[Rfam]
RNA sequence: UAAAAGGGCCUUUGCAUCGUUGGCACAUGGGUUCGUAUGGACCUGUGCGGAAUCGCCAUCAAGAGAUUUCGGAGGCAUAAUAUUUGGGAAUUUGUGGCAGCUAGCGUCUCAUUACGCCGGCGCCCAA
Numbered sequence: 001u002a003a004a005a006g007g008g009c010c011u012u013u014g015c016a017u018c019g020u021u022g023g024c025a026c027a028u029g030g031g032u033u034c035g036u037a038u039g040g041a042c043c044u045g046u047g048c049g050g051a052a053u054c055g056c057c058a059u060c061a062a063g064a065g066a067u068u069u070c071g072g073a074g075g076c077a078u079a080a081u082a083u084u085u086g087g088g089a090a091u092u093u094g095u096g097g098c099a100g101c102u103a104g105c106g107u108c109u110c111a112u113u114a115c116g117c118c119g120g121c122g123c124c125c126a127a
Stems, first nucleotide, its partner, number of pairs: 008076005013025003026047009048071007096124003100121003104117004
The family of this 127-nucleotide RNA from Exaiptasia diaphana is "U11 spliceosomal RNA". Lineage of the source: Eukaryota > Opisthokonta > Metazoa > Hexacorallia > Exaiptasia. Rfam classes the family as a spliceosomal small nuclear RNA. Pairs were carried over by alignment from the consensus structure, which is taken from published work. On this family, see Marz et al., J Mol Evol 2008: "Evolution of spliceosomal snRNA genes in metazoan animals".